[Rfam]
RNA sequence: CGGGCGGUGAACUCCCAGAUCGCGUCGUCGUCGAGGAGGGCCUCGUCGCCGAAGUAGGCGCCGUCGGCGAGGACGCCGAGGACCUGGUCGUCGCCGUAGGGGCCGGUGCCGACCUUCUCGACGCGGCCGUGCGCCAGCAUGAACACCUCGUCGUUCGAGCUGCCGAAGGAGGCGAUGACCUCCCCGGCGCCGAUCUCGCGCUGGCGGGAGCGCGAGGCGAGCUCGGUGAGGACCGCCUCGUCCUCGUAGCCGCGCAGGGCGGGCAGUUCGCCCAGUUCGGCGGGGAUCACCUCGACGCGGUCGCCGGUCUUGACGAAGGUGAUGCGGCCGUCGCCGACGGAGUACGUGAGCCGCCGGUUCACCCGGUACGUGCCGCCCUGGACGUCGACCCACGGCAGCGUGCGCAGCAGCCAGCGGGAACUGAUCUCCUGCAUCUGCGGAACGGACUUGGUGGUGGUGGCCAGGUUCCGCGCCGCGGCCGUUCCGAGGCUCUGCUGCGGCGCGCCCU
Number, nucleotide and partner (000 for none) at each position: 001c000002g000003g000004g000005c000006g390007g389008u388009g000010a000011a385012c384013u000014c000015c381016c380017a000018g328019a000020u000021c000022g325023c324024g000025u322026c321027g320028u319029c318030g000031u316032c315033g000034a000035g000036g000037a311038g310039g309040g308041c307042c306043u000044c000045g305046u000047c303048g302049c300050c299051g298052a000053a000054g233055u232056a000057g000058g000059c228060g227061c226062c225063g224064u000065c111066g110067g109068c108069g000070a000071g000072g000073a000074c000075g103076c000077c102078g000079a097080g000081g095082a000083c093084c000085u000086g000087g000088u000089c000090g000091u000092c000093g083094c000095c081096g000097u079098a000099g000100g000101g000102g077103c075104c000105g000106g000107u000108g068109c067110c066111g065112a000113c000114c000115u000116u000117c221118u220119c219120g218121a000122c216123g000124c000125g000126g213127c212128c000129g000130u209131g000132c206133g205134c204135c203136a202137g201138c000139a000140u198141g197142a000143a196144c000145a000146c000147c000148u000149c192150g191151u000152c000153g000154u000155u187156c186157g185158a000159g183160c000161u177162g000163c000164c174165g173166a000167a000168g000169g000170a000171g000172g000173c165174g164175a000176u000177g161178a000179c000180c000181u000182c000183c159184c000185c157186g156187g155188c000189g000190c000191c150192g149193a000194u000195c000196u143197c141198g140199c000200g000201c137202u136203g135204g134205c133206g132207g000208g000209a130210g000211c000212g127213c126214g000215a000216g122217g000218c120219g119220a118221g117222c000223u000224c063225g062226g061227u060228g059229a000230g000231g000232a055233c054234c000235g000236c294237c000238u000239c000240g290241u289242c000243c000244u286245c285246g000247u000248a000249g000250c282251c000252g000253c279254g278255c000256a277257g276258g000259g271260c270261g269262g000263g000264c000265a000266g000267u000268u000269c261270g260271c259272c000273c000274a000275g000276u257277u256278c254279g253280g000281c000282g250283g000284g000285g245286a244287u000288c000289a241290c240291c000292u000293c000294g236295a000296c000297g000298c051299g050300g049301u000302c048303g047304c000305c045306g042307g041308u040309c039310u038311u037312g000313a000314c000315g032316a031317a000318g029319g028320u027321g026322a025323u000324g023325c022326g000327g000328c018329c342330g000331u340332c339333g000334c000335c000336g000337a000338c000339g332340g331341a000342g329343u000344a000345c000346g000347u000348g000349a000350g000351c000352c000353g377354c000355c375356g374357g373358u000359u000360c372361a371362c370363c000364c000365g000366g000367u000368a000369c000370g362371u361372g360373c357374c356375g355376c000377c353378c000379u000380g016381g015382a000383c000384g012385u011386c000387g000388a008389c007390c006391c431392a430393c000394g428395g427396c000397a425398g000399c423400g422401u000402g000403c418404g000405c416406a000407g415408c000409a000410g000411c000412c000413a000414g000415c407416g405417g000418g403419a000420a000421c000422u400423g399424a000425u397426c000427u395428c394429c000430u392431g391432c000433a000434u000435c000436u000437g476438c475439g474440g473441a000442a000443c470444g469445g468446a467447c465448u464449u463450g462451g461452u460453g000454g000455u000456g000457g000458u000459g000460g452461c451462c450463a449464g448465g447466u000467u446468c445469c444470g443471c000472g000473c440474c439475g438476c437477g507478g506479c000480c504481g503482u502483u000484c500485c499486g498487a496488g495489g000490c000491u000492c000493u000494g000495c488496u487497g000498c486499g485500g484501c000502g482503c481504g480505c000506c478507c477508u000
Shown here is a 508-nucleotide RNA sequence from Streptomyces acidiscabies, a member of the family "Saccharopolyspora sRNA 350".
Rfam classes the family as an antisense RNA.
The organism belongs to Streptomyces, within Bacteria.